Shown here is a 96-nucleotide RNA sequence from Ipomoea nil, a member of the family "Small nucleolar RNA Z266". Pairs were carried over by alignment from the consensus structure, which was predicted with PFOLD.

RNA sequence: AGUAGGCAAGGAUGAUGAUGCGAUUAGAUGCGUGAGGGGGAGAAUUCCUCUAUGAGCAUAACUUACGAGGCUUAUUGAUAUUCUGACUUGCCUACG
Numbered sequence: 001a002g003u004a005g006g007c008a009a010g011g012a013u014g015a016u017g018a019u020g021c022g023a024u025u026a027g028a029u030g031c032g033u034g035a036g037g038g039g040g041a042g043a044a045u046u047c048c049u050c051u052a053u054g055a056g057c058a059u060a061a062c063u064u065a066c067g068a069g070g071c072u073u074a075u076u077g078a079u080a081u082u083c084u085g086a087c088u089u090g091c092c093u094a095c096g
Base pairs, nucleotide, nucleotide: 002095003094004093005092006091007090008089009088010087
A search with the family's covariance model found it, with a score of 60 bits. Rfam classes the family as a C/D-box small nucleolar RNA. A reference for the family is Chen et al. (2003), "The high diversity of snoRNAs in plants: identification and comparative study of 120 snoRNA genes from Oryza sativa", Nucleic Acids Res.